[Rfam]
RNA sequence: ACUUAAAGCAGGUCAGCCACUGACUAACGCACAUUGUGCCAGUUCGAGUCCACUGUGCGUGUGACAGCGGCUAACUUGUUUUUGGGGAUGCCACAU
Numbered sequence: 001a002c003u004u005a006a007a008g009c010a011g012g013u014c015a016g017c018c019a020c021u022g023a024c025u026a027a028c029g030c031a032c033a034u035u036g037u038g039c040c041a042g043u044u045c046g047a048g049u050c051c052a053c054u055g056u057g058c059g060u061g062u063g064a065c066a067g068c069g070g071c072u073a074a075c076u077u078g079u080u081u082u083u084g085g086g087g088a089u090g091c092c093a094c095a096u
Stems, first nucleotide, its partner, number of pairs: 005082008015072004020067003024063001025061002028059006035052002

mir-210 microRNA precursor family: a 96-nucleotide sequence from Muraenolepis orangiensis. Taxonomically the source falls in Muraenolepis (Eukaryota, Vertebrata, Teleostomi, Paracanthopterygii). Rfam links the family to the GO terms RISC complex and miRNA-mediated post-transcriptional gene silencing. The match comes from Rfam's covariance-model search (82 bits). Rfam 15.1 lists 790 matches to the family in 722 species. For this family Rfam cites "Kaposi's sarcoma-associated herpesvirus expresses an array of viral microRNAs in latently infected cells" (Cai et al., Proc Natl Acad Sci U S A, 2005). The family's consensus secondary structure was predicted with WAR.